Rfam assigns this 79-nucleotide RNA sequence from Oryza brachyantha to the family "Small nucleolar RNA R12". The base pairs follow the family's consensus structure, which was predicted with PFOLD. By type it is a C/D-box small nucleolar RNA. On this family, see Chen et al., Nucleic Acids Res 2003: "The high diversity of snoRNAs in plants: identification and comparative study of 120 snoRNA genes from Oryza sativa". The organism belongs to Oryza, within Eukaryota. Rfam links the family to the GO terms nucleolus and RNA processing. The match comes from Rfam's covariance-model search (84 bits).
[Rfam]
RNA sequence: UUGGGGAUGAUGAAGAAAAGACGGAUUCCCAUUGAUUUCUAGUCGAAAUGUGAUCUUCAAUCAGCUACUUUUGACUCAA
Numbered sequence: 001u002u003g004g005g006g007a008u009g010a011u012g013a014a015g016a017a018a019a020g021a022c023g024g025a026u027u028c029c030c031a032u033u034g035a036u037u038u039c040u041a042g043u044c045g046a047a048a049u050g051u052g053a054u055c056u057u058c059a060a061u062c063a064g065c066u067a068c069u070u071u072u073g074a075c076u077c078a079a
Stems, first nucleotide, its partner, number of pairs: 001079005